[Rfam]
RNA sequence: GGCAGAGUUAGCAGGCUGAUGUCGUUGAUUCGGGAUGUGUGCAUACUGUUGAAGGUCAUUUCGGCGAUGAGAUCAGCCUGUCGAACUCGGC
Number, nucleotide and partner (000 for none) at each position: 001g000002g091003c090004a000005g088006a087007g086008u085009u000010a000011g081012c080013a079014g078015g077016c076017u075018g074019a073020u072021g000022u070023c069024g068025u067026u066027g000028a000029u000030u000031c000032g000033g000034g062035a061036u000037g059038u058039g057040u000041g000042c000043a000044u000045a000046c000047u000048g000049u000050u000051g000052a000053a000054g000055g000056u000057c039058a038059u037060u000061u035062c034063g000064g000065c000066g026067a025068u024069g023070a022071g000072a020073u019074c018075a017076g016077c015078c014079u013080g012081u011082c000083g000084a000085a008086c007087u006088c005089g000090g003091c002
Annotation:
Rfam assigns this 91-nucleotide sequence from Trichogramma brassicae to the family "mir-6012 microRNA precursor family". NCBI's taxonomy places the organism under Eukaryota, Eumetazoa, Ecdysozoa, Hymenoptera, Trichogramma. The family has 2 seed sequences and 60 matches in Rfam 15.1.